[Rfam]
Notes
The record is a 78-nucleotide sequence from Flavobacterium cheongpyeongense, which matches "Flavo-1 RNA" in Rfam. The family's consensus secondary structure is taken from published work. It is annotated as a small RNA. The match comes from Rfam's covariance-model search (60 bits). The source organism's lineage runs through Bacteria, Pseudomonadati, Flavobacteriales, Flavobacteriaceae and Flavobacterium.
RNA sequence: CCCUAGCCCUGAUGAAAGCGACAUCCUUUUGUUUUUUAAAGAAAAAAACAAAAGAUACAGAGGACAGCAGGAAUAGCU
Numbered sequence: 001c002c003c004u005a006g007c008c009c010u011g012a013u014g015a016a017a018g019c020g021a022c023a024u025c026c027u028u029u030u031g032u033u034u035u036u037u038a039a040a041g042a043a044a045a046a047a048a049c050a051a052a053a054g055a056u057a058c059a060g061a062g063g064a065c066a067g068c069a070g071g072a073a074u075a076g077c078u
Stems, first nucleotide, its partner, number of pairs: 009070003013066002019060001023056003029051008